Shown here is a 95-nucleotide RNA from Corynebacterium mycetoides, a member of the family "Bacterial small signal recognition particle RNA". It scores 66 bits against the family's covariance model. Rfam classes the family as a non-coding RNA gene. Rfam's curators write: The signal recognition particle (SRP) is a universally conserved ribonucleoprotein involved in the co-translational targeting of proteins to membranes.
RNA sequence: CUAGGAUCCCACGCGGUGCUUAUCUUGUGAACUCCCCCAGGGCGGGAACGCAGCAAGGGUCAGCGAGCUCUGGCAGGUGCGUGGGGUCCCUUUAU
Numbered sequence: 001c002u003a004g005g006a007u008c009c010c011a012c013g014c015g016g017u018g019c020u021u022a023u024c025u026u027g028u029g030a031a032c033u034c035c036c037c038c039a040g041g042g043c044g045g046g047a048a049c050g051c052a053g054c055a056a057g058g059g060u061c062a063g064c065g066a067g068c069u070c071u072g073g074c075a076g077g078u079g080c081g082u083g084g085g086g087u088c089c090c091u092u093u094a095u
Base pairs, nucleotide, nucleotide: 004089005088006087007086008085009084010083011082012081013080014077017075018074019073020072024067025066026065027064028063034059035058036057042051043050044049